[Rfam]
RNA sequence: UAGCAUCAGAAGUUCUGUUUCAAUCUACUGAGCUUGAUGUAUAGAAUACCAUGAUGCAACAGAAAUAUUUGGGCCAUCCAAGGCUGACAGAAUUCAUCUUCUGUUGGCCAUUUCAACCCACAUACAUUU
Numbered sequence: 001u002a003g004c005a006u007c008a009g010a011a012g013u014u015c016u017g018u019u020u021c022a023a024u025c026u027a028c029u030g031a032g033c034u035u036g037a038u039g040u041a042u043a044g045a046a047u048a049c050c051a052u053g054a055u056g057c058a059a060c061a062g063a064a065a066u067a068u069u070u071g072g073g074c075c076a077u078c079c080a081a082g083g084c085u086g087a088c089a090g091a092a093u094u095c096a097u098c099u100u101c102u103g104u105u106g107g108c109c110a111u112u113u114c115a116a117c118c119c120a121c122a123u124a125c126a127u128u129u
Stems, first nucleotide, its partner, number of pairs: 003057004009049001013046006020037003061129003066124003070120003082109007090101002